This 260-nucleotide RNA sequence from Streptomyces sp. ADI96-02 belongs to the Rfam family "Streptomyces sRNA 4677". The pairing is the family consensus, mapped onto this sequence. Lineage of the source: Bacteria > Bacillati > Actinomycetota > Kitasatosporales > Streptomyces. Rfam describes the family as follows. Located in the intergenic region between anti-sigma factor SCO4677 gene and a putative regulatory protein gene SCO4676. scr4677 expression requires the SCO4677 activity and scr4677 sRNA itself seem to affect the levels of the SCO4676-associated transcripts. A reference for the family is Hindra et al. (2014), "Complex intra-operonic dynamics mediated by a small RNA in Streptomyces coelicolor", PLoS One. Rfam 15.1 lists 563 matches to the family in 285 species.

[Rfam]
RNA sequence: AGACGCGGUGGGCCACGACGUCAAAAGCUUUUCAGCACGGGGGAAAUAACCCCACCCAACCCAACCGGCCGGUGUCCCGCCCAGGUCGCGGGCGCGUUCGCGGGCCGCGUCACCCGCACGGGUGAGCUCUGCCAACCUGACUGGAUUCCGGGCCGGUUGGCGGGCAUAUGCUCACGCUCACCACAGACAUGAGACGGCCCCCGGCCGGGACUGGCAUCCCGAUCGAGGGCCUGACCAAUGAGGAAGAAGAGAGCUUCCCG
Numbered sequence: 001a002g003a004c005g006c007g008g009u010g011g012g013c014c015a016c017g018a019c020g021u022c023a024a025a026a027g028c029u030u031u032u033c034a035g036c037a038c039g040g041g042g043g044a045a046a047u048a049a050c051c052c053c054a055c056c057c058a059a060c061c062c063a064a065c066c067g068g069c070c071g072g073u074g075u076c077c078c079g080c081c082c083a084g085g086u087c088g089c090g091g092g093c094g095c096g097u098u099c100g101c102g103g104g105c106c107g108c109g110u111c112a113c114c115c116g117c118a119c120g121g122g123u124g125a126g127c128u129c130u131g132c133c134a135a136c137c138u139g140a141c142u143g144g145a146u147u148c149c150g151g152g153c154c155g156g157u158u159g160g161c162g163g164g165c166a167u168a169u170g171c172u173c174a175c176g177c178u179c180a181c182c183a184c185a186g187a188c189a190u191g192a193g194a195c196g197g198c199c200c201c202c203g204g205c206c207g208g209g210a211c212u213g214g215c216a217u218c219c220c221g222a223u224c225g226a227g228g229g230c231c232u233g234a235c236c237a238a239u240g241a242g243g244a245a246g247a248a249g250a251g252a253g254c255u256u257c258c259c260g
Stems, first nucleotide, its partner, number of pairs: 007239001009237002015097003110125006142174003196231005202225002207220004242258005